[Rfam]
The family of this 77-nucleotide sequence from Flavobacterium succinicans is "Flavo-1 RNA". The family's consensus secondary structure is taken from published work. It scores 69 bits against the family's covariance model.
RNA sequence: CUCUAGCCCCGACAGUAGCGGCAUCCUUUGCCUUUUUUCUUUAAAAGGGAAAGAUAUAGCGGAUGGCGGGACGAUGC
Numbered sequence: 001c002u003c004u005a006g007c008c009c010c011g012a013c014a015g016u017a018g019c020g021g022c023a024u025c026c027u028u029u030g031c032c033u034u035u036u037u038u039c040u041u042u043a044a045a046a047g048g049g050a051a052a053g054a055u056a057u058a059g060c061g062g063a064u065g066g067c068g069g070g071a072c073g074a075u076g077c
Stems, first nucleotide, its partner, number of pairs: 009069003013065002018060002023055003029050001031048006
Dot-bracket structure: ........(((.((...((...(((...(.((((((......)))))).)..)))...))...)).)))........
The family's RNA type in Rfam is small RNA.